Description: The record is a 216-nucleotide sequence, which matches "Group II catalytic intron D1-D4-6" in Rfam. Rfam's curators put it in the seed alignment. A reference for the family is Bonen and Vogel (2001), "The ins and outs of group II introns", Trends Genet.
[Rfam]
RNA sequence: AAAGCCCGUCCGGUAGCGCCUGACCAGCGGCCGGAAGCGAGUCUUGCGUGGUGACCGGGUAACCGGCGCUGCGAAGCGUAGACAGCCAGUCCGAAAGCCAUGCUAUUGAGCGUCGAAAGCCCUCUCGUGGGAGCCUUUGCUGUGCACAUACCAAGGGCCACGCUGCUGCACCGUAACGGGUCUGGUGCACGCAGUCCUGCCGGCGUCGGAAGAACA
Numbered sequence: 001a002a003a004g005c006c007c008g009u010c011c012g013g014u015a016g017c018g019c020c021u022g023a024c025c026a027g028c029g030g031c032c033g034g035a036a037g038c039g040a041g042u043c044u045u046g047c048g049u050g051g052u053g054a055c056c057g058g059g060u061a062a063c064c065g066g067c068g069c070u071g072c073g074a075a076g077c078g079u080a081g082a083c084a085g086c087c088a089g090u091c092c093g094a095a096a097g098c099c100a101u102g103c104u105a106u107u108g109a110g111c112g113u114c115g116a117a118a119g120c121c122c123u124c125u126c127g128u129g130g131g132a133g134c135c136u137u138u139g140c141u142g143u144g145c146a147c148a149u150a151c152c153a154a155g156g157g158c159c160a161c162g163c164u165g166c167u168g169c170a171c172c173g174u175a176a177c178g179g180g181u182c183u184g185g186u187g188c189a190c191g192c193a194g195u196c197c198u199g200c201c202g203g204c205g206u207c208g209g210a211a212g213a214a215c216a
Stems, first nucleotide, its partner, number of pairs: 009035005017029003022182003037086002041083004045078002047073007055065001057064002107210001108207001110206006127200006133158003138153002141150001163194004168188005